Rfam assigns this 139-nucleotide sequence from Acipenser ruthenus to the family "Small nucleolar RNA SNORA29". Its family is annotated with RNA processing and nucleolus in the Gene Ontology.
RNA sequence: ACUCCCAUUUUAGUACCAUUCCUUCAGUUCACCAGGAUGAGUGGCUAUGCUAAUGGGAAAGAGAAAACUUGUCAUUGUCUGAAGGAGAGCCUGGCCACAUAAACCAGCUUUCCUAUAUGAAAUGGCAGAACACUUAAAG
Numbered sequence: 001a002c003u004c005c006c007a008u009u010u011u012a013g014u015a016c017c018a019u020u021c022c023u024u025c026a027g028u029u030c031a032c033c034a035g036g037a038u039g040a041g042u043g044g045c046u047a048u049g050c051u052a053a054u055g056g057g058a059a060a061g062a063g064a065a066a067a068c069u070u071g072u073c074a075u076u077g078u079c080u081g082a083a084g085g086a087g088a089g090c091c092u093g094g095c096c097a098c099a100u101a102a103a104c105c106a107g108c109u110u111u112c113c114u115a116u117a118u119g120a121a122a123u124g125g126c127a128g129a130a131c132a133c134u135u136a137a138a139g
Stems, first nucleotide, its partner, number of pairs: 004057004016044004071126004088114002
Dot-bracket structure: ...((((........((((.....................)))).........)))).............((((.............((.......................))........)))).............
It is annotated as an H/ACA-box small nucleolar RNA. The family's consensus secondary structure was predicted with PFOLD. About the family: ACA29 is a member of the H/ACA class of snoRNA that guide the sites of modification of uridines to pseudouridines. The match comes from Rfam's covariance-model search (74 bits).